RNA sequence: UAAUAUGCGAUGAAAAGGACAUGAAUUAUUUUUACUGUUAUCAGAGAGGGAAGGAUAGGUGUGAGCUUCCUAGCAAAGGAAAAUAAUUUACCACCUUUGAGCUAUAUUGGUGAACGAGAAGUAGUCAAUAUCGUGUAUGCAGCGUUACUGCACCAAGCCAUAAGAAAACCACUGUGUUUUUUUAUGGGAAUUUGGGUGGAACCACGGGUGAAAACACUCGUCCCUUUC
Dot-bracket structure: ......((......((((.......((((((.....(((........((((((............)))))))))......)))))).......))))...))..(((((((............))))))).(((.......)))..............(((((((((((......))))))))))).......(((.......(((((((....))))))))))....